RNA sequence: GACUGGUCCGAGUGCAUUGGUGUUUAGAACUAAUUCAUCACAACCAGUUACAGAUUUUCUUGUUUCUUCUCCACUCCCAUUGCUUCACUUGACUAGCCUUAA
Dot-bracket structure: (.((((((.((..(.(.(((.(.....(((.(...........................).)))...........)))).)....)..)))))))).)....
RNA: Y RNA
Organism: Rhinopithecus bieti